[Rfam]
RNA sequence: GGUAGUAGCAAAUAAUCGAAUGAGACCUUGGAGGACUGAAGUGGAGAAGGGUUUCGUGUGAACAGUGGUUGAUCACGAGUUAGUCGGUCCUAAGUUCAAGGCGAAAGCCGAAAAUUUUCAAGUAAAACAAAAAUGCCUAACUAUAUAAACAAAGCGAAUAUAAUACACUUGAAUAAUUUUGAACGAAAGGGAAUACGGUUCCAAUUCCGUAACCUGUUGAGUAUCCGUUUGUUAUUAAAUAUGGGCCUCGUGCUCAUCCUGGCAACAGGAACGACCAUAAAGAAGCCGUCGAGAGAUAUCGGAAGAGUUUUCUUUUCUGUUUUAUAGCCGUACUACCAUGGAAGUCUUUCGCAGAGAGAUAUGGUAGAUGGGCUAGAAGAGCAUGACAUAUACUGUUGUGUCGAUAUUUUCUCCUCGGACCUUGAAAAUUUAUGGUGGGGACACGCAAACUUCUCAACAGGCCGUACCAAUAUCCGCAGCUGGUCUCCAAGGUGAAGAGUCUCUAGUCGA
Numbered sequence: 001g002g003u004a005g006u007a008g009c010a011a012a013u014a015a016u017c018g019a020a021u022g023a024g025a026c027c028u029u030g031g032a033g034g035a036c037u038g039a040a041g042u043g044g045a046g047a048a049g050g051g052u053u054u055c056g057u058g059u060g061a062a063c064a065g066u067g068g069u070u071g072a073u074c075a076c077g078a079g080u081u082a083g084u085c086g087g088u089c090c091u092a093a094g095u096u097c098a099a100g101g102c103g104a105a106a107g108c109c110g111a112a113a114a115u116u117u118u119c120a121a122g123u124a125a126a127a128c129a130a131a132a133a134u135g136c137c138u139a140a141c142u143a144u145a146u147a148a149a150c151a152a153a154g155c156g157a158a159u160a161u162a163a164u165a166c167a168c169u170u171g172a173a174u175a176a177u178u179u180u181g182a183a184c185g186a187a188a189g190g191g192a193a194u195a196c197g198g199u200u201c202c203a204a205u206u207c208c209g210u211a212a213c214c215u216g217u218u219g220a221g222u223a224u225c226c227g228u229u230u231g232u233u234a235u236u237a238a239a240u241a242u243g244g245g246c247c248u249c250g251u252g253c254u255c256a257u258c259c260u261g262g263c264a265a266c267a268g269g270a271a272c273g274a275c276c277a278u279a280a281a282g283a284a285g286c287c288g289u290c291g292a293g294a295g296a297u298a299u300c301g302g303a304a305g306a307g308u309u310u311u312c313u314u315u316u317c318u319g320u321u322u323u324a325u326a327g328c329c330g331u332a333c334u335a336c337c338a339u340g341g342a343a344g345u346c347u348u349u350c351g352c353a354g355a356g357a358g359a360u361a362u363g364g365u366a367g368a369u370g371g372g373c374u375a376g377a378a379g380a381g382c383a384u385g386a387c388a389u390a391u392a393c394u395g396u397u398g399u400g401u402c403g404a405u406a407u408u409u410u411c412u413c414c415u416c417g418g419a420c421c422u423u424g425a426a427a428a429u430u431u432a433u434g435g436u437g438g439g440g441a442c443a444c445g446c447a448a449a450c451u452u453c454u455c456a457a458c459a460g461g462c463c464g465u466a467c468c469a470a471u472a473u474c475c476g477c478a479g480c481u482g483g484u485c486u487c488c489a490a491g492g493u494g495a496a497g498a499g500u501c502u503c504u505a506g507u508c509g510a
Stems, first nucleotide, its partner, number of pairs: 016032002019029002034508004043488004049468002054078005063071002085464003089190002094184002096112001100109003117176002194211005214460004219453002221450002228269006276434006286418003291413006299404002301321002304318003325375005335365006345355003382400007474483002490502004
RNA: Eukaryotic large subunit ribosomal RNA, nucleotides 1679 to 2188
Organism: Gasterosteus aculeatus